Record summary
Shown here is a 161-nucleotide RNA sequence from Acetomicrobium mobile, a member of the family "glmS glucosamine-6-phosphate activated ribozyme aptamer". Pairs were carried over by alignment from the consensus structure, which is taken from published work. The literature on the family includes a 2006 paper in Nat Struct Mol Biol by Jansen et al., "Backbone and nucleobase contacts to glucosamine-6-phosphate in the glmS ribozyme". It scores 92 bits against the family's covariance model. By type it is a riboswitch. The organism belongs to Acetomicrobium mobile, within Bacteria.
[Rfam]
RNA sequence: GUCUGUGGUUAAGCGCCUGGACUGGUCGCAAGCCAGUUGACGAGGUCGGGGGAGGAUCGAAGCUAUCGGCGGAUGCCCCCGGGCCCCGGAAGAUGGGCCAAUCAGUCGUCCCACAAAGCCGCGGAGCGAUCUGCGGGACAAAGGGGGCGACGAUCUUCUGU
Number, nucleotide and partner (000 for none) at each position: 001g000002u000003c000004u000005g000006u000007g000008g000009u000010u000011a000012a000013g000014c000015g000016c000017c000018u000019g000020g038021a037022c036023u035024g034025g033026u032027c000028g000029c000030a000031a000032g026033c025034c024035a023036g022037u021038u020039g000040a000041c000042g000043a000044g000045g000046u000047c000048g080049g079050g078051g077052g076053a000054g000055g000056a000057u069058c068059g067060a066061a000062g000063c000064u000065a000066u060067c059068g058069g057070c000071g000072g000073a000074u000075g000076c052077c051078c050079c049080c048081g000082g099083g098084c097085c096086c095087c000088g000089g000090a000091a000092g000093a000094u000095g086096g085097g084098c083099c082100a000101a000102u000103c000104a000105g151106u150107c149108g148109u147110c146111c145112c000113a000114c000115a000116a000117a000118g000119c136120c135121g134122c133123g132124g131125a130126g000127c000128g000129a000130u125131c124132u123133g122134c121135g120136g119137g000138a000139c000140a000141a000142a000143g000144g000145g111146g110147g109148c108149g107150a106151c105152g000153a000154u000155c000156u000157u000158c000159u000160g000161u000